[Rfam]
RNA: Small nucleolar RNA SNORA81
RNA sequence: GCCUUCUGUACGACAGGCACUGUGCUAAAACCGAGGGGGAACUAGGCUCCCAUCGUGGCUUCUGUAAUGAUGCCAGCAGAGUGCACACAAGAAGAUCAGUCACUGCGCUAGACAGUAAAGACUAGGGUGAACCUGUUUCUUAAUGUCCAGUGUCCUUUGUCUUAAGAGUUCGUGCAAUAUGU
Numbered sequence: 001g002c003c004u005u006c007u008g009u010a011c012g013a014c015a016g017g018c019a020c021u022g023u024g025c026u027a028a029a030a031c032c033g034a035g036g037g038g039g040a041a042c043u044a045g046g047c048u049c050c051c052a053u054c055g056u057g058g059c060u061u062c063u064g065u066a067a068u069g070a071u072g073c074c075a076g077c078a079g080a081g082u083g084c085a086c087a088c089a090a091g092a093a094g095a096u097c098a099g100u101c102a103c104u105g106c107g108c109u110a111g112a113c114a115g116u117a118a119a120g121a122c123u124a125g126g127g128u129g130a131a132c133c134u135g136u137u138u139c140u141u142a143a144u145g146u147c148c149a150g151u152g153u154c155c156u157u158u159g160u161c162u163u164a165a166g167a168g169u170u171c172g173u174g175c176a177a178u179a180u181g182u
Stems, first nucleotide, its partner, number of pairs: 020081002023078004030071001032069002038062002042058003046054001048052001104176005110170002124153001126151001128149002131146001